Shown here is an 81-nucleotide RNA from Hevea brasiliensis, a member of the family "Small nucleolar RNA R12".
For this family Rfam cites "The high diversity of snoRNAs in plants: identification and comparative study of 120 snoRNA genes from Oryza sativa" (Chen et al., Nucleic Acids Res, 2003).
Lineage of the source: Eukaryota > Euphyllophyta > eudicotyledons > Pentapetalae > Hevea.
Rfam 15.1 lists 992 matches to the family in 220 species.
Rfam describes the family as follows. snoR12 is a C/D box small nucleolar RNA, which acts as a methylation guide for 25S ribosomal RNA in plants. snoR12 has been alternatively named snoZ44 in Arabidopsis and snoZ131 in rice.
The base pairs follow the family's consensus structure, which was predicted with PFOLD.
RNA sequence: AUGAGGAUGAUGAAAGAAAUCAGACGGAUUCCCACUGAUUUUUCUAAAUAUGAUAUCAAUUAGCAGUUAAUUCUGACUCUU
Dot-bracket structure: (.(((.......................................................................))).)